[Rfam]
RNA: bZIP non canonical Hac1/Xbp1 intron
RNA sequence: UGGUGGCCGGGUCCUCCGAGUCAGCAGUGCUCAGGGGAGCUGUACCUCAGCAGUGGGUGCUGACCCGGCCACCA
Numbered sequence: 001u002g003g004u005g006g007c008c009g010g011g012u013c014c015u016c017c018g019a020g021u022c023a024g025c026a027g028u029g030c031u032c033a034g035g036g037g038a039g040c041u042g043u044a045c046c047u048c049a050g051c052a053g054u055g056g057g058u059g060c061u062g063a064c065c066c067g068g069c070c071a072c073c074a
Base pairs, nucleotide, nucleotide: 001074002073003072004071005070006069007068009066010065011064012063013062016034018032019031020030021029043059044058045057046056047055